Ma3 gene ribosomal frameshift signal: a 60-nucleotide RNA sequence from Sphenodon punctatus. It scores 37 bits against the family's covariance model. The organism belongs to Sphenodon, within Eukaryota. The family's RNA type in Rfam is frameshift element.

[Rfam]
RNA sequence: GGGAAACUGGGAAGGGGACUGGGACAGGAACCUCCCAGAUUCCCAGGAACUAUAGGCUUC
Numbered sequence: 001g002g003g004a005a006a007c008u009g010g011g012a013a014g015g016g017g018a019c020u021g022g023g024a025c026a027g028g029a030a031c032c033u034c035c036c037a038g039a040u041u042c043c044c045a046g047g048a049a050c051u052a053u054a055g056g057c058u059u060c
Base pairs, nucleotide, nucleotide: 014044015043016042017041018040019038020037021036022035023034024033028059029058031056032055